Notes
The record is an 89-nucleotide RNA sequence from Desulfonispora thiosulfatigenes, which matches "c-di-GMP-I riboswitch aptamer" in Rfam. GEMM was predicted in a large-scale screen for bacterial structured RNA regulatory elements. Genes associated with GEMM are involved in a diverse array of functions, including chemotaxis regulation, signal transduction, secretion and chitin. Taxonomically the source falls in Desulfonispora thiosulfatigenes (Bacteria, Bacillota, Eubacteriales, Peptococcaceae). A search with the family's covariance model found it, with a score of 80 bits. Rfam 15.1 lists 5,092 matches to the family in 1,772 species.
RNA sequence: AGAAUAAAAGGGCAAAACUAACGAAAGUUAGUGACGCAAAGCUAUGGGUCUAAAUCUAUAUUUAAAGAUAUGAUUGCCAGGUUGCCAUG
Numbered sequence: 001a002g003a004a005u006a007a008a009a010g011g012g013c014a015a016a017a018c019u020a021a022c023g024a025a026a027g028u029u030a031g032u033g034a035c036g037c038a039a040a041g042c043u044a045u046g047g048g049u050c051u052a053a054a055u056c057u058a059u060a061u062u063u064a065a066a067g068a069u070a071u072g073a074u075u076g077c078c079a080g081g082u083u084g085c086c087a088u089g
Base pairs, nucleotide, nucleotide: 012037013036017032018031019030020029021028022027040083041082042081043080045079046078047077048074049073050072055068056067057066